[Rfam]
Nucleotides: 086
Stems, first nucleotide, its partner, number of pairs: 010078003016064004025055002031049005037043002
Number, partner (000 for none) and nucleotide at each position: 001000a002000g003000c004000u005000u006000a007000a008000a009000a010078g011077a012076a013000u014000u015000u016064u017063u018062a019061a020000u021000u022000u023000c024000c025055u026054c027000u028000u029000u030000a031049a032048u033047c034046u035045u036000c037043a038042c039000u040000a041000u042038g043037u044000a045035a046034g047033g048032g049031u050000c051000u052000u053000u054026g055025a056000u057000g058000c059000c060000a061019u062018u063017a064016a065000a066000u067000g068000a069000u070000u071000g072000c073000u074000u075000c076012u077011u078010c079000g080000u081000c082000a083000u084000g085000u086000u
Annotation: This 86-nucleotide sequence from Castor canadensis belongs to the Rfam family "Stem loopII regulatory element in POLB". A search with the family's covariance model found it, with a score of 72 bits. NCBI's taxonomy places the organism under Eukaryota, Eumetazoa, Deuterostomia, Mammalia, Castor. Gene Ontology term of the family: regulation of RNA stability. The base pairs follow the family's consensus structure, which is taken from published work. Rfam classes the family as a cis-regulatory element.